[Rfam]
RNA: Bacterial antisense RNA HPnc0260
Organism: Achromatium sp. WMS3
RNA sequence: GAUACCAGAGUAUAUCUAUAAUAUAGACUAUAUCUGUAAUAUAGACUAUAAAGAUGCAGCUCUUAAAAGUUAAUUUAAUAUUAAAGAAACAAAAUUUUUAGUAUUGGUAGGCGCGAUCGGACUCGAACCAACGACCCCCACCA
Numbered sequence: 001g002a003u004a005c006c007a008g009a010g011u012a013u014a015u016c017u018a019u020a021a022u023a024u025a026g027a028c029u030a031u032a033u034c035u036g037u038a039a040u041a042u043a044g045a046c047u048a049u050a051a052a053g054a055u056g057c058a059g060c061u062c063u064u065a066a067a068a069g070u071u072a073a074u075u076u077a078a079u080a081u082u083a084a085a086g087a088a089a090c091a092a093a094a095u096u097u098u099u100a101g102u103a104u105u106g107g108u109a110g111g112c113g114c115g116a117u118c119g120g121a122c123u124c125g126a127a128c129c130a131a132c133g134a135c136c137c138c139c140a141c142c143a
Stems, first nucleotide, its partner, number of pairs: 024048003030042004074089003105140003110135001114133002117131001119129002